[Rfam]
Nucleotides: 163
Stems, first nucleotide, its partner, number of pairs: 012121004017047001019045003023042001026039002049090004054086001056083002060079005092115001094112003098108001139162001141160001144157004
Number, partner (000 for none) and nucleotide at each position: 001000a002000u003000a004000c005000c006000u007000a008000c009000c010000u011000g012121g013120c014119a015118g016000a017047g018000a019045a020044a021043a022000c023042a024000g025000a026039a027038u028000g029000a030000u031000c032000a033000g034000a035000a036000a037000g038027g039026u040000a041000g042023u043021u044020u045019u046000c047017c048000c049090a050089g051088g052087g053000u054086g055000a056083g057082g058000a059000u060079c061078a062077u063076u064075c065000a066000u067000u068000g069000u070000g071000c072000u073000c074000u075064g076063g077062g078061u079060g080000u081000g082057c083056u084000g085000a086054c087052c088051c089050c090049u091000g092115g093000a094112u095111u096110u097000u098108c099000c100000c101000a102000a103000a104000u105000g106000c107000a108098g109000g110096a111095a112094a113000c114000a115092c116000g117000a118015c119014u120013g121012c122000a123000u124000a125000a126000u127000u128000u129000g130000u131000g132000g133000u134000a135000g136000u137000g138000g139162g140000g141160g142000a143000c144157u145156a146155u147154g148000u149000u150000a151000g152000u153000g154147c155146a156145u157144a158000u159000a160141u161000a162139u163000a
This 163-nucleotide RNA from Salvator merianae belongs to the Rfam family "U1 spliceosomal RNA". Rfam's curators write: U1 is a small nuclear RNA (snRNA) component of the spliceosome (involved in pre-mRNA splicing). Its 5' end forms complementary base pairs with the 5' splice junction, thus defining the 5' donor site of an intron. There are significant differences in sequence and secondary structure between metazoan and yeast U1 snRNAs, the latter being much longer (568 nucleotides as compared to 164 nucleotides in human). Rfam classes the family as a spliceosomal small nuclear RNA. A reference for the family is Zwieb (1997), "The uRNA database", Nucleic Acids Res. NCBI's taxonomy places the organism under Eukaryota, Bilateria, Vertebrata, Lepidosauria, Salvator.